Rfam assigns this 110-nucleotide sequence from Sphingomonas parapaucimobilis to the family "SAM-I/IV (S-adenosyl methionine) riboswitch aptamer".
Nucleotides: 110
Stems, first nucleotide, its partner, number of pairs: 006082005015032001017030005033058003038054003041050003045106001084094004
Number, partner (000 for none) and nucleotide at each position: 001000c002000g003000c004000c005000a006082g007081c008080a009079u010078c011000g012000a013000g014000a015032g016000u017030c018029g019028g020027g021026c022000c023000a024000u025000a026021g027020c028019c029018c030017g031000g032015c033058a034057c035056c036000a037000a038054c039053c040052u041050g042049c043048c044000u045106c046000c047000c048043g049042g050041c051000a052040a053039g054038g055000u056035g057034g058033u059000g060000c061000c062000u063000u064000u065000c066000c067000g068000g069000a070000u071000g072000g073000a074000g075000a076000g077000g078010g079009a080008u081007g082006u083000g084094g085093c086092c087091g088000a089000a090000c091087c092086g093085g094084c095000a096000a097000c098000a099000a100000c101000g102000g103000g104000a105000c106045g107000a108000a109000c110000c

The family's consensus secondary structure is taken from published work. The source organism's lineage runs through Bacteria, Pseudomonadota, Alphaproteobacteria, Sphingomonas and Sphingomonas parapaucimobilis. A reference for the family is Trausch et al. (2014), "Structural basis for diversity in the SAM clan of riboswitches", PNAS.